[Rfam]
RNA sequence: ACCACUAAGCCAUCUCUCCAGCCCUCAUAAAUAUAUUUUUUAAUGAGUAAAGUGGGCUGGAGAGAUGGCUUAGUGGU
Dot-bracket structure: .(((((((((((((((((((((((.............................))))))))))))))))))))))).
RNA: mir-3473 microRNA precursor family